[Rfam]
Rfam assigns this 400-nucleotide RNA from Thrush coronavirus HKU12-600 to the family "Deltacoronavirus 3'UTR". A reference for the family is Goebel et al. (2004), "The 3' cis-acting genomic replication element of the severe acute respiratory syndrome coronavirus can function in the murine coronavirus genome", J Virol. By type it is a cis-regulatory element. The source organism's lineage runs through Viruses, Pisuviricota, Coronaviridae, Deltacoronavirus and Buldecovirus. About the family: There are two smaller hairpins and the hypervariable region (HVR) present in the 3' UTR of deltacoronaviruses. The pseudoknot structure which is typical for alpha- and betacoronaviruses has not been predicted in deltacoronaviruses thus far. It scores 372 bits against the family's covariance model.
RNA sequence: UAUUGACAUUGAAGUUCUUGGUUUUGUAACAUUUAUACACUAUUUCUGGCACUACCGUCCACGUAGAUGCCAGCAUGUUAUACCGCAAGAGAGCCAGUCAGAGGGCGCUAUCAUGCAAACUAGGGCUGGCUACUCUUGCACAGAAUCACAUCUCGAUAAGUGUCAGUGCAAGAAGGACACUUAUACCAUUUAAUAUGCCGAGGCCACGCGGAGUACGAUCGAGGGUACAGCAUAAUCUCAACUUUUGUUGAAACUCAUUUAUAAUACUAUAUGGAGAAAGUUAAAGGACUGUACUACUUUGUAGGUGUAGCAGUCGCCCAGUGGGAAAGCGCCAUAUAGAUUACAAAUGAGUGGGGAACAAAUUAGGGGAAAUUAAAUUGGCUUAUAAGGGGGAUGGAGC
Dot-bracket structure: ...............................................((((.(..((....))..).))))................((((((((((((..((...((......))...))..)))))))).))))............((((((.(((((((((...........))))))))).(((((((((((((....(((.((((.....))..))..)))...))))..........((((((...((((((((.(....((((((((............((((((.((((...)))).....)))))).(((...)))......))))))))...).))))))))....)))))).........)))))).))).........))))))....